Lysine riboswitch aptamer: a 171-nucleotide RNA from Sporomusa silvacetica.
NCBI's taxonomy places the organism under Bacteria, Bacillati, Negativicutes, Sporomusaceae, Sporomusa silvacetica.
The base pairs follow the family's consensus structure, which is taken from published work.
[Rfam]
RNA sequence: UUUUCCGAUAGAGGCGCGGCAGAGCAAGAGUAAGUAUGAAGAGUUGGCAGCGAUGACCAUACUGAAAGGGGCUGACCGCCGAAGUGAAGGUUUUUGCCAAGAACUUUUUGCUGGUUUUGCAUUUAAUAAAUGUAAGACUGUCACCUGUUAUGGUGGAGCGCUAUCCUUGCA
Numbered sequence: 001u002u003u004u005c006c007g008a009u010a011g012a013g014g015c016g017c018g019g020c021a022g023a024g025c026a027a028g029a030g031u032a033a034g035u036a037u038g039a040a041g042a043g044u045u046g047g048c049a050g051c052g053a054u055g056a057c058c059a060u061a062c063u064g065a066a067a068g069g070g071g072c073u074g075a076c077c078g079c080c081g082a083a084g085u086g087a088a089g090g091u092u093u094u095u096g097c098c099a100a101g102a103a104c105u106u107u108u109u110g111c112u113g114g115u116u117u118u119g120c121a122u123u124u125a126a127u128a129a130a131u132g133u134a135a136g137a138c139u140g141u142c143a144c145c146u147g148u149u150a151u152g153g154u155g156g157a158g159c160g161c162u163a164u165c166c167u168u169g170c171a
Base pairs, nucleotide, nucleotide: 007165008164009163010162011161016079017078018077019076023073024072025071033063034062035061036060037059038058083112084111085110086109087108088107089105090104091103092102093101113139114138115137116136117135118134119133120132121131122130123129141156142155143154144153145152